This 600-nucleotide part of an RNA from Halopiger xanaduensis belongs to the Rfam family "Archaeal small subunit ribosomal RNA". The family's consensus secondary structure is taken from published work. Lineage of the source: Archaea > Methanobacteriati > Methanobacteriota > Halopiger > Halopiger xanaduensis. The literature on the family includes a 2001 paper in Science by Yusupov et al., "Crystal structure of the ribosome at 5.5 A resolution".
[Rfam]
RNA sequence: UGGCGGGGGAGCACUACAACCGGAGGAGCCUGCGGUUUAAUUGGACUCAACGCCGGACAUCUCACCAGCAUCGACAGCAGGAGUGACGAUCAGGUUGAUGACCUUAUCAGACCUGCUGAGAGGAGGUGCAUGGCCGCCGUCAGCUCGUACCGUGAGGCGUCCUGUUAAGUCAGGCAACGAGCGAGACCCGCACUCCUAAUUGCCAGCAACACCCUCGUGGUGGUUGGGUACAUUAGGAGGACUGCCAGUGCCAAACUGGAGGAAGGAACGGGCAACGGUAGGUCAGUAUGCCCCGAAUGUGCUGGGCGACACGCGGGCUACAAUGGCCGAGACAGUGGGAUGCAACGCCGAAAGGCGACGCUAAUCUCCGAAACUCGGUCGUAGUUCGGAUUGCGGAUUGAAACUCAUCCGCAUGAAGCUGGAUUCGGUAGUAAUCGCGCCUCAGAAGGGCGCGGUGAAUACGUCCCUGCUCCUUGCACACACCGCCCGUCAAAGCACCCGAGUGAGGUCCGGAUGAGGCCUGGUCACCAGGUCGAAUCUGGGCUUCGCAAGGGGGCUUAAGUCGUAACAAGGUAGCCGUAGGGGAAUCUGCGGCUGGAU
Numbered sequence: 001u002g003g004c005g006g007g008g009g010a011g012c013a014c015u016a017c018a019a020c021c022g023g024a025g026g027a028g029c030c031u032g033c034g035g036u037u038u039a040a041u042u043g044g045a046c047u048c049a050a051c052g053c054c055g056g057a058c059a060u061c062u063c064a065c066c067a068g069c070a071u072c073g074a075c076a077g078c079a080g081g082a083g084u085g086a087c088g089a090u091c092a093g094g095u096u097g098a099u100g101a102c103c104u105u106a107u108c109a110g111a112c113c114u115g116c117u118g119a120g121a122g123g124a125g126g127u128g129c130a131u132g133g134c135c136g137c138c139g140u141c142a143g144c145u146c147g148u149a150c151c152g153u154g155a156g157g158c159g160u161c162c163u164g165u166u167a168a169g170u171c172a173g174g175c176a177a178c179g180a181g182c183g184a185g186a187c188c189c190g191c192a193c194u195c196c197u198a199a200u201u202g203c204c205a206g207c208a209a210c211a212c213c214c215u216c217g218u219g220g221u222g223g224u225u226g227g228g229u230a231c232a233u234u235a236g237g238a239g240g241a242c243u244g245c246c247a248g249u250g251c252c253a254a255a256c257u258g259g260a261g262g263a264a265g266g267a268a269c270g271g272g273c274a275a276c277g278g279u280a281g282g283u284c285a286g287u288a289u290g291c292c293c294c295g296a297a298u299g300u301g302c303u304g305g306g307c308g309a310c311a312c313g314c315g316g317g318c319u320a321c322a323a324u325g326g327c328c329g330a331g332a333c334a335g336u337g338g339g340a341u342g343c344a345a346c347g348c349c350g351a352a353a354g355g356c357g358a359c360g361c362u363a364a365u366c367u368c369c370g371a372a373a374c375u376c377g378g379u380c381g382u383a384g385u386u387c388g389g390a391u392u393g394c395g396g397a398u399u400g401a402a403a404c405u406c407a408u409c410c411g412c413a414u415g416a417a418g419c420u421g422g423a424u425u426c427g428g429u430a431g432u433a434a435u436c437g438c439g440c441c442u443c444a445g446a447a448g449g450g451c452g453c454g455g456u457g458a459a460u461a462c463g464u465c466c467c468u469g470c471u472c473c474u475u476g477c478a479c480a481c482a483c484c485g486c487c488c489g490u491c492a493a494a495g496c497a498c499c500c501g502a503g504u505g506a507g508g509u510c511c512g513g514a515u516g517a518g519g520c521c522u523g524g525u526c527a528c529c530a531g532g533u534c535g536a537a538u539c540u541g542g543g544c545u546u547c548g549c550a551a552g553g554g555g556g557c558u559u560a561a562g563u564c565g566u567a568a569c570a571a572g573g574u575a576g577c578c579g580u581a582g583g584g585g586a587a588u589c590u591g592c593g594g595c596u597g598g599a600u
Stems, first nucleotide, its partner, number of pairs: 001480002003477003007474007016464002020428005025321001027319008035310002041056004065305007075118004080113002088108003092104003122294002125292004131288002133283003136279004143182006150157002161174004188271003193239007203228002207226003210222004242262002245259005325380007337368003342361002346357004387418001392413007434456008483572001485569001488565002491562001493559004498554003503549013518534007574597010